Shown here is a 165-nucleotide sequence from Halogeometricum borinquense, a member of the family "Sense overlapping transcript RNA 0042 (sot)". The family's consensus secondary structure was predicted with RNAfold. On this family, see Gomes-Filho et al., RNA Biol 2015: "Sense overlapping transcripts in IS1341-type transposase genes are functional non-coding RNAs in archaea". The organism belongs to Halogeometricum borinquense, within Archaea. From the family's description: It is associated with IS1341-type transposase (tnpB) genes, at the 3'-end in H. salinarum NRC-1. The tetraloop structural motif may be functional. Rfam 15.1 lists 196 matches to the family in 82 species.
RNA sequence: AGAUAACUCAGAGUCCCCCAACAGGGGAUAUGAGUAACGGCUGGUUGGCACAGCCCGGAGUCUUCCUGUUCGACCGCGAGAGCGGGUCGUUCAACACGAGAGAACAGGGAGCCUGCAAACCGUAAUAUCCCAACGCUCGGGAUUCCUCCGGCUUCAGUCGGAGGA
Numbered sequence: 001a002g003a004u005a006a007c008u009c010a011g012a013g014u015c016c017c018c019c020a021a022c023a024g025g026g027g028a029u030a031u032g033a034g035u036a037a038c039g040g041c042u043g044g045u046u047g048g049c050a051c052a053g054c055c056c057g058g059a060g061u062c063u064u065c066c067u068g069u070u071c072g073a074c075c076g077c078g079a080g081a082g083c084g085g086g087u088c089g090u091u092c093a094a095c096a097c098g099a100g101a102g103a104a105c106a107g108g109g110a111g112c113c114u115g116c117a118a119a120c121c122g123u124a125a126u127a128u129c130c131c132a133a134c135g136c137u138c139g140g141g142a143u144u145c146c147u148c149c150g151g152c153u154u155c156a157g158u159c160g161g162a163g164g165a
Stems, first nucleotide, its partner, number of pairs: 004037001007034004013029003016025002039055005059114002062111002065108007084097001086095002128142004133137001144165009
Dot-bracket structure: ...(..((((..(((((......)).))).))))..).(((((.......)))))...((.((.(((((((............(.((......)).)....))))))).)).)).............((((.(...).)))).(((((((((....)))))))))